[Rfam]
RNA sequence: GUGUAAGUCACUGGAGGCAGCGGUUCAUCGAUCUCUUCCUGAAUUUUGUUGUGUGAAAAGCGCAAAGCAUGAAUCGGUCGAUAAACCUCUGCAUCCAGCGCUCACUUU
Dot-bracket structure: ............(((..(((.((((.(((((((..(((................................)))..))))))).)))).)))..)))............

This 108-nucleotide RNA from Acacia auriculiformis belongs to the Rfam family "MIR162_1 microRNA precursor family". A reference for the family is Reinhart et al. (2002), "MicroRNAs in plants", Genes Dev. Clan: MIR167 microRNA precursor clan.